RNA sequence: AGCCUCCUCGUGCUUACCACAGGCUGUGUUCCUUCACUGUGAAGAGGAAGGAAAGUAAACCUACCACAUACUCAUCUCAGCCCAGGCAUAGGCACAGGCACAGGGCCUGGUCUGUGUGGUGAGUGGGAAGAUGG
Numbered sequence: 001a002g003c004c005u006c007c008u009c010g011u012g013c014u015u016a017c018c019a020c021a022g023g024c025u026g027u028g029u030u031c032c033u034u035c036a037c038u039g040u041g042a043a044g045a046g047g048a049a050g051g052a053a054a055g056u057a058a059a060c061c062u063a064c065c066a067c068a069u070a071c072u073c074a075u076c077u078c079a080g081c082c083c084a085g086g087c088a089u090a091g092g093c094a095c096a097g098g099c100a101c102a103g104g105g106c107c108u109g110g111u112c113u114g115u116g117u118g119g120u121g122a123g124u125g126g127g128a129a130g131a132u133g134g
Base pairs, nucleotide, nucleotide: 003050005048006047007046008045026037027036028035064126065125066124067123078114079113080112082110083109084108085107086106087105
Rfam assigns this 134-nucleotide sequence from Castor canadensis to the family "Small nucleolar RNA SNORA51". The organism belongs to Castor, within Eukaryota. Rfam describes the family as follows. ACA51 is a member of the H/ACA class of snoRNA that guide the sites of modification of uridines to pseudouridines. The family's consensus secondary structure was predicted with PFOLD. It scores 71 bits against the family's covariance model. By type it is an H/ACA-box small nucleolar RNA.